[Rfam]
This 109-nucleotide sequence from Sousa chinensis belongs to the Rfam family "Y RNA". By type it is a non-coding RNA gene. The base pairs follow the family's consensus structure, which is taken from published work. Y RNAs are components of the Ro ribonucleoprotein particle (Ro RNP), in association with Ro60 and La proteins.
RNA sequence: GACUGGUCCAAAGGCAGGAAGUUAUCUCAAUUGAUUGUUCAUAGUCAGUUAGAGAUCGAACUCCUUGUUGUACUCUUCCCCCCUUUUUACUACUGCACUUGACUAAAAA
Numbered sequence: 001g002a003c004u005g006g007u008c009c010a011a012a013g014g015c016a017g018g019a020a021g022u023u024a025u026c027u028c029a030a031u032u033g034a035u036u037g038u039u040c041a042u043a044g045u046c047a048g049u050u051a052g053a054g055a056u057c058g059a060a061c062u063c064c065u066u067g068u069u070g071u072a073c074u075c076u077u078c079c080c081c082c083c084u085u086u087u088u089a090c091u092a093c094u095g096c097a098c099u100u101g102a103c104u105a106a107a108a109a
Stems, first nucleotide, its partner, number of pairs: 004105005010100002014096002016091002019088003043074003